[Rfam]
RNA sequence: AAUAGUUUUAUGCCACAUCAGUACUCUUAUCUUGAAUUUCAGGAUUUUAUCCUGAAAAAAAUCAAAUUCAAAUUAAAAUACUAAAAUUCAAGAUAAAAUCUUGAAAUUUAGGAUAAGAAUACUGAUGUGGCAUAAAACUAUU
Numbered sequence: 001a002a003u004a005g006u007u008u009u010a011u012g013c014c015a016c017a018u019c020a021g022u023a024c025u026c027u028u029a030u031c032u033u034g035a036a037u038u039u040c041a042g043g044a045u046u047u048u049a050u051c052c053u054g055a056a057a058a059a060a061a062u063c064a065a066a067u068u069c070a071a072a073u074u075a076a077a078a079u080a081c082u083a084a085a086a087u088u089c090a091a092g093a094u095a096a097a098a099u100c101u102u103g104a105a106a107u108u109u110a111g112g113a114u115a116a117g118a119a120u121a122c123u124g125a126u127g128u129g130g131c132a133u134a135a136a137a138c139u140a141u142u
Stems, first nucleotide, its partner, number of pairs: 001142023025118003029114011041102002045098007
The record is a 142-nucleotide RNA from Gossypium barbadense, which matches "MIR7504 microRNA precursor family" in Rfam. The family has 8 seed sequences and 7,343 matches in Rfam 15.1. A search with the family's covariance model found it, with a score of 84 bits. Gene Ontology terms of the family: RISC complex and miRNA-mediated post-transcriptional gene silencing.